[Rfam]
About this RNA
This 131-nucleotide RNA sequence from Mus spicilegus belongs to the Rfam family "Small nucleolar RNA SNORA17". snoRNA ACA 17 belongs to the H/ACA family of snoRNAs and is predicted to guide pseudouridylation of the 28S rRNA at positions U4659 and U4598. It shares the same host gene together with ACA43. NB This family has a high threshold value to exclude a large number of closely related sequences that do not appear to have conserved H and ACA boxes, and may be pseudogenes. A search with the family's covariance model found it, with a score of 72 bits. Taxonomically the source falls in Mus (Eukaryota, Chordata, Sarcopterygii, Amniota). It is annotated as an H/ACA-box small nucleolar RNA.
RNA sequence: AUUGUCUCCAGAGGUAUUACAGAUGUGGUUUGUGUGUCUUCUGUGGGUCAAUAGCUGACAGAGAGGAGAAAGGCCAGGUAUUGUUCACUGUUCUGACCUAAGAACAUCUGAAUGAUUAAUAGUCAAAUAGU
Numbered sequence: 001a002u003u004g005u006c007u008c009c010a011g012a013g014g015u016a017u018u019a020c021a022g023a024u025g026u027g028g029u030u031u032g033u034g035u036g037u038c039u040u041c042u043g044u045g046g047g048u049c050a051a052u053a054g055c056u057g058a059c060a061g062a063g064a065g066g067a068g069a070a071a072g073g074c075c076a077g078g079u080a081u082u083g084u085u086c087a088c089u090g091u092u093c094u095g096a097c098c099u100a101a102g103a104a105c106a107u108c109u110g111a112a113u114g115a116u117u118a119a120u121a122g123u124c125a126a127a128u129a130g131u
Stems, first nucleotide, its partner, number of pairs: 002061005008054001010052001013049003020045002025040001027038003068128001072124003076120001081115003085111003089106005